[Rfam]
RNA sequence: AAUUUAUAGAGAAUAGGUAAGAGAGUAGGCUCUGCGAUCCUAUGGCAACCUGAAGAGUUUCAUAAACUGACAAGGUGCUUCAACCUACCCAAGAUCAAAGGGAAUUAUAAAUU
Numbered sequence: 001a002a003u004u005u006a007u008a009g010a011g012a013a014u015a016g017g018u019a020a021g022a023g024a025g026u027a028g029g030c031u032c033u034g035c036g037a038u039c040c041u042a043u044g045g046c047a048a049c050c051u052g053a054a055g056a057g058u059u060u061c062a063u064a065a066a067c068u069g070a071c072a073a074g075g076u077g078c079u080u081c082a083a084c085c086u087a088c089c090c091a092a093g094a095u096c097a098a099a100g101g102g103a104a105u106u107a108u109a110a111a112u113u
Stems, first nucleotide, its partner, number of pairs: 001113008013043005021032003026087004044079004049075002054068001083105001088102003

Rfam assigns this 113-nucleotide RNA from Fulvivirga imtechensis to the family "SAM riboswitch aptamer (S box leader)". Taxonomically the source falls in Fulvivirga imtechensis (Bacteria, Pseudomonadati, Bacteroidota, Fulvivirga). A search with the family's covariance model found it, with a score of 56 bits.